Background: The family of this 79-nucleotide RNA from Albula glossodonta is "mir-19 microRNA precursor family". Rfam links the family to the GO terms miRNA-mediated post-transcriptional gene silencing and RISC complex.
[Rfam]
RNA sequence: GUUCACGGUGAGUUUUGCAGGAUUGCAUCCAGCUUGUGAAAACGCUGCUGUGCAAAUCCAUGCAAAACUCUCUGUGCCC
Numbered sequence: 001g002u003u004c005a006c007g008g009u010g011a012g013u014u015u016u017g018c019a020g021g022a023u024u025g026c027a028u029c030c031a032g033c034u035u036g037u038g039a040a041a042a043c044g045c046u047g048c049u050g051u052g053c054a055a056a057u058c059c060a061u062g063c064a065a066a067a068c069u070c071u072c073u074g075u076g077c078c079c
Base pairs, nucleotide, nucleotide: 004076005075006074007073008072010070011069012068013067014066015065016064017063018062019061020059021058023055024054025053026052027051028050031049032048033047
Dot-bracket structure: ...(((((.((((((((((((.((((((..(((.............)))))))))..)).)))))))))).)))))...